A member of the RNA family "Small nucleolar RNA SNORA5" from Cavia porcellus, 133 nucleotides long. From the family's description: ACA5 is a member of the H/ACA class of snoRNA that guide the sites of modification of uridines to pseudouridines. The match comes from Rfam's covariance-model search (69 bits). Pairs were carried over by alignment from the consensus structure, which was predicted with RNAfold.
RNA sequence: UACAGUGGAGUCAAAUUUGGCCUCGUGUCAUCAUGGUGGGAGCUGGCCAAGAUGGCUGCCACAGCAAACACCAUUGCGCAUGGACUCUGGGUCCACUGCCUGGACUCAGGGAUAAGUUUGACCGCAGACAUAG
Numbered sequence: 001u002a003c004a005g006u007g008g009a010g011u012c013a014a015a016u017u018u019g020g021c022c023u024c025g026u027g028u029c030a031u032c033a034u035g036g037u038g039g040g041a042g043c044u045g046g047c048c049a050a051g052a053u054g055g056c057u058g059c060c061a062c063a064g065c066a067a068a069c070a071c072c073a074u075u076g077c078g079c080a081u082g083g084a085c086u087c088u089g090g091g092u093c094c095a096c097u098g099c100c101u102g103g104a105c106u107c108a109g110g111g112a113u114a115a116g117u118u119u120g121a122c123c124g125c126a127g128a129c130a131u132a133g
Stems, first nucleotide, its partner, number of pairs: 003058003018045004023040002026038004074124001076122001085111005